Source information
A member of the RNA family "mir-239 microRNA precursor family" from Parnassius apollo, 68 nucleotides long. The family has 12 seed sequences and 54 matches in Rfam 15.1. The literature on the family includes a 2009 paper in Genome Biol by Kato et al., "Dynamic expression of small non-coding RNAs, including novel microRNAs and piRNAs/21U-RNAs, during Caenorhabditis elegans development".
RNA sequence: CAAACAUUGUACUAGGCAAGAGAGUAAGGAUACCACUUCCUUACUCUCUUGCCUAGUACAAUGUUUGC
Numbered sequence: 001c002a003a004a005c006a007u008u009g010u011a012c013u014a015g016g017c018a019a020g021a022g023a024g025u026a027a028g029g030a031u032a033c034c035a036c037u038u039c040c041u042u043a044c045u046c047u048c049u050u051g052c053c054u055a056g057u058a059c060a061a062u063g064u065u066u067g068c
Stems, first nucleotide, its partner, number of pairs: 003065010015053009025043003028039003